Rfam assigns this 75-nucleotide sequence from Haemonchus placei to the family "mir-5928 microRNA precursor family". A search with the family's covariance model found it, with a score of 65 bits. Taxonomically the source falls in Haemonchus (Eukaryota, Protostomia, Ecdysozoa, Strongyloidea).
RNA sequence: GGCACGAACCUAAAGUAGAGUAGAUCAGUAUGGUCAGCUAAUCCUACUAAGCUACUUUACUUCGAAUCUGGGCCC
Numbered sequence: 001g002g003c004a005c006g007a008a009c010c011u012a013a014a015g016u017a018g019a020g021u022a023g024a025u026c027a028g029u030a031u032g033g034u035c036a037g038c039u040a041a042u043c044c045u046a047c048u049a050a051g052c053u054a055c056u057u058u059a060c061u062u063c064g065a066a067u068c069u070g071g072g073c074c075c
Stems, first nucleotide, its partner, number of pairs: 001074003005070002008067001011064001013062011025050001027048004032043003